[Rfam]
RNA sequence: AACGAAUGCUUUCUCCGAGUCCGCCGGCCUAAAACAUGGCGUUAUGGCUGCUGGACCGACAGGGUGUAUCGGGAAACCGGCAUGCCUCCCAUUGCGGUAAGGAGAUAAUUGACAGGCUUU
Numbered sequence: 001a002a003c004g005a006a007u008g009c010u011u012u013c014u015c016c017g018a019g020u021c022c023g024c025c026g027g028c029c030u031a032a033a034a035c036a037u038g039g040c041g042u043u044a045u046g047g048c049u050g051c052u053g054g055a056c057c058g059a060c061a062g063g064g065u066g067u068a069u070c071g072g073g074a075a076a077c078c079g080g081c082a083u084g085c086c087u088c089c090c091a092u093u094g095c096g097g098u099a100a101g102g103a104g105a106u107a108a109u110u111g112a113c114a115g116g117c118u119u120u
Stems, first nucleotide, its partner, number of pairs: 004113001012105005019056005025050005033043003062087006069080004088097002
The record is a 120-nucleotide sequence from Desulfoscipio gibsoniae, which matches "Molybdenum/Tungsten riboswitch aptamer (Moco RNA motif)" in Rfam. The family's consensus secondary structure is taken from published work. Taxonomically the source falls in Desulfoscipio gibsoniae (Bacteria, Bacillati, Desulfallaceae, Desulfoscipio).